[Rfam]
RNA sequence: UGGCCGCAGAAUAAGUUAUUCUGUAGCCACUUUGAGUUACGAUAAUUUAUAUAUUAAUUUACAAGAUUGUAGUAACUCCUUACUAAGUGGUUUACUAUAAUGUUAUGUUAAAUAUCCCCAUAUGUUAUAGUAACCCAACUAUCGUAAAUAUGUAUUGGCAUUAUCGUAAAUUAGUAGAUAAAAUUAUCGUAAAUGGAGGUGGCUACAGAAUAACUUAUUUUGUAGCCG
Number, nucleotide and partner (000 for none) at each position: 001u228002g227003g226004c225005c000006g223007c222008a221009g220010a219011a218012u217013a216014a215015g214016u213017u212018a211019u210020u209021c208022u207023g206024u205025a204026g203027c202028c201029a200030c199031u198032u197033u196034g000035a000036g000037u192038u191039a190040c189041g188042a187043u186044a185045a184046u183047u182048u000049a000050u178051a000052u176053a175054u174055u173056a172057a171058u170059u169060u168061a167062c166063a000064a000065g165066a164067u163068u000069g161070u160071a000072g000073u000074a155075a000076c000077u000078c000079c000080u147081u146082a145083c144084u000085a000086a000087g142088u141089g140090g139091u138092u137093u132094a131095c130096u129097a128098u127099a126100a125101u124102g123103u122104u000105a000106u000107g117108u000109u000110a000111a000112a000113u000114a000115u000116c000117c107118c000119c000120a000121u000122a103123u102124g101125u100126u099127a098128u097129a096130g095131u094132a093133a000134c000135c000136c000137a092138a091139c090140u089141a088142u087143c000144g083145u082146a081147a080148a000149u000150a000151u000152g000153u000154a000155u074156u000157g000158g000159c000160a070161u069162u000163a067164u066165c065166g062167u061168a060169a059170a058171u057172u056173a055174g054175u053176a052177g000178a050179u000180a000181a000182a047183a046184u045185u044186a043187u042188c041189g040190u039191a038192a037193a000194u000195g000196g033197a032198g031199g030200u029201g028202g027203c026204u025205a024206c023207a022208g021209a020210a019211u018212a017213a016214c015215u014216u013217a012218u011219u010220u009221u008222g007223u006224a000225g004226c003227c002228g001
RNA: MIR6217 microRNA precursor family
Organism: Miscanthus lutarioriparius